The record is a 73-nucleotide RNA sequence from Equus caballus, which matches "mir-27 microRNA precursor family" in Rfam. It is one of the family's seed sequences. The literature on the family includes a 2005 paper in Genes Dev by Chen et al., "The developmental miRNA profiles of zebrafish as determined by small RNA cloning". Rfam 15.1 lists 1,440 matches to the family in 645 species.
[Rfam]
RNA sequence: AGGUGCAGAGCUUAGCUGAUUGGUGAACAGUGACUGGUUUCCGCUUUGUUCACAGUGGCUAAGUUCUGCACCU
Numbered sequence: 001a002g003g004u005g006c007a008g009a010g011c012u013u014a015g016c017u018g019a020u021u022g023g024u025g026a027a028c029a030g031u032g033a034c035u036g037g038u039u040u041c042c043g044c045u046u047u048g049u050u051c052a053c054a055g056u057g058g059c060u061a062a063g064u065u066c067u068g069c070a071c072c073u
Stems, first nucleotide, its partner, number of pairs: 008066010023053007